[Rfam]
RNA sequence: UCGUCAGUAAGGUACAUCCUUACCUGUUCCUCCUCCGGGAGGGCAGCACAUGAUGAAUGGAGAGCGUAUGAGACAUGAUUAGAGUCUCUGCUGAUCGGGGAAUCGCAACGCCCCGGUCUGCUCCUUUCUGAU
Numbered sequence: 001u002c003g004u005c006a007g008u009a010a011g012g013u014a015c016a017u018c019c020u021u022a023c024c025u026g027u028u029c030c031u032c033c034u035c036c037g038g039g040a041g042g043g044c045a046g047c048a049c050a051u052g053a054u055g056a057a058u059g060g061a062g063a064g065c066g067u068a069u070g071a072g073a074c075a076u077g078a079u080u081a082g083a084g085u086c087u088c089u090g091c092u093g094a095u096c097g098g099g100g101a102a103u104c105g106c107a108a109c110g111c112c113c114c115g116g117u118c119u120g121c122u123c124c125u126u127u128c129u130g131a132u
Stems, first nucleotide, its partner, number of pairs: 024046003028043006070088002073085002076081001092120001093118007
Shown here is a 132-nucleotide sequence from Varanus komodoensis, a member of the family "U8 small nucleolar RNA". The source organism's lineage runs through Eukaryota, Deuterostomia, Craniata, Euteleostomi and Varanus. The literature on the family includes a 2001 paper in Gene by Peculis et al., "The U8 snoRNA gene family: identification and characterization of distinct, functional U8 genes in Xenopus". The base pairs follow the family's consensus structure, which is taken from published work. A search with the family's covariance model found it, with a score of 109 bits. Rfam classes the family as a C/D-box small nucleolar RNA.